RNA sequence: ACCGUCUUUGUCUUGGGGCUGCGAGCAUGUUCAAGGAACGUUAAGUGAGAACAUGACUGCUGACACCACUGACUAACAAUCACUGCAUCAUGGAGGCGAAAGCUUCCAUUGGUGCAAUUUUUGGAGCU
Dot-bracket structure: .....((((.....))))..(((..(((((((.....((.....))..)))))))..)))........................((((((.((((((....))))))..)))))).............
Numbered sequence: 001a002c003c004g005u006c007u008u009u010g011u012c013u014u015g016g017g018g019c020u021g022c023g024a025g026c027a028u029g030u031u032c033a034a035g036g037a038a039c040g041u042u043a044a045g046u047g048a049g050a051a052c053a054u055g056a057c058u059g060c061u062g063a064c065a066c067c068a069c070u071g072a073c074u075a076a077c078a079a080u081c082a083c084u085g086c087a088u089c090a091u092g093g094a095g096g097c098g099a100a101a102g103c104u105u106c107c108a109u110u111g112g113u114g115c116a117a118u119u120u121u122u123g124g125a126g127c128u
Stems, first nucleotide, its partner, number of pairs: 006018004021060003026055007038046002085115006092107006

Source information
Rfam assigns this 128-nucleotide sequence from Lottia gigantea to the family "U4atac minor spliceosomal RNA". U4atac is an essential component of the minor U12-type spliceosome complex which is required for removal of the rarer class of eukaryotic introns (AT-AC, U12-type). It is annotated as a spliceosomal small nuclear RNA. For this family Rfam cites "Evolutionary conservation of minor U12-type spliceosome between plants and humans" (Lorkovic et al., RNA, 2005). The match comes from Rfam's covariance-model search (87 bits). The organism belongs to Lottia, within Eukaryota.